[Rfam]
RNA sequence: AGCUGUCCACAGUGUGUUUGAUAAGCUGACAUAUGACAGGGAAUUCUUUCGCUGUUGUGUCAGUUUAUCAAACCCAUACCUGGAUGAC
Numbered sequence: 001a002g003c004u005g006u007c008c009a010c011a012g013u014g015u016g017u018u019u020g021a022u023a024a025g026c027u028g029a030c031a032u033a034u035g036a037c038a039g040g041g042a043a044u045u046c047u048u049u050c051g052c053u054g055u056u057g058u059g060u061c062a063g064u065u066u067a068u069c070a071a072a073c074c075c076a077u078a079c080c081u082g083g084a085u086g087a088c
Stems, first nucleotide, its partner, number of pairs: 005085005012077003016073017035056005040050003

Description
The record is an 88-nucleotide RNA sequence from Nannospalax galili, which matches "mir-599 microRNA precursor family" in Rfam. A reference for the family is Yue et al. (2008), "Identification of novel homologous microRNA genes in the rhesus macaque genome", BMC Genomics. The base pairs follow the family's consensus structure, which was predicted with RNAalifold. It scores 101 bits against the family's covariance model.